A member of the RNA family "mir-676 microRNA precursor family" from Phyllostomus discolor, 73 nucleotides long.
A reference for the family is Mineno et al. (2006), "The expression profile of microRNAs in mouse embryos", Nucleic Acids Res.
The match comes from Rfam's covariance-model search (91 bits).
Pairs were carried over by alignment from the consensus structure, which was predicted with RNAalifold.
Rfam links the family to the GO terms miRNA-mediated post-transcriptional gene silencing and RISC complex.
[Rfam]
Nucleotides: 073
Base pairs, nucleotide, nucleotide: 002072003071004070005069006068010064011063012062015059016058017057018056019055020054022052023051024050025049026048029046030045031044
Number, partner (000 for none) and nucleotide at each position: 001000a002072a003071u004070g005069c006068a007000u008000g009000a010064c011063u012062c013000a014000u015059c016058a017057a018056u019055c020054u021000c022052a023051g024050g025049a026048c027000u028000c029046g030045c031044a032000g033000a034000a035000u036000u037000a038000u039000u040000g041000a042000a043000a044031u045030g046029c047000c048026g049025u050024c051023c052022u053000a054020a055019g056018a057017u058016u059015g060000u061000u062012g063011a064010g065000u066000g067000c068006u069005g070004c071003g072002u073000u